[Rfam]
RNA sequence: GAAAUACCCUUAUGGGGCAGGACUUGCUUCAGUGAGACUUUGGUGUUCACUGAGUCUGCCCCUGAAUGUGUCUCU
Numbered sequence: 001g002a003a004a005u006a007c008c009c010u011u012a013u014g015g016g017g018c019a020g021g022a023c024u025u026g027c028u029u030c031a032g033u034g035a036g037a038c039u040u041u042g043g044u045g046u047u048c049a050c051u052g053a054g055u056c057u058g059c060c061c062c063u064g065a066a067u068g069u070g071u072c073u074c075u
Stems, first nucleotide, its partner, number of pairs: 001074002004071004010065003014062006021056003029053008037044002
RNA: mir-9229 microRNA precursor family
Organism: Pipistrellus kuhlii